[Rfam]
RNA sequence: AAGGCAGGUGAUGAUAAAAUAGACAGGGACAUCAGUUACUCUCUUUUUAGGGAGGAUGAUGACCAAGUCUAAAAUGGGAAUCUCUCUGAUGCCUU
Numbered sequence: 001a002a003g004g005c006a007g008g009u010g011a012u013g014a015u016a017a018a019a020u021a022g023a024c025a026g027g028g029a030c031a032u033c034a035g036u037u038a039c040u041c042u043c044u045u046u047u048u049a050g051g052g053a054g055g056a057u058g059a060u061g062a063c064c065a066a067g068u069c070u071a072a073a074a075u076g077g078g079a080a081u082c083u084c085u086c087u088g089a090u091g092c093c094u095u
Stems, first nucleotide, its partner, number of pairs: 002094005
RNA: Small nucleolar RNA R44/J54/Z268 family
Organism: Populus trichocarpa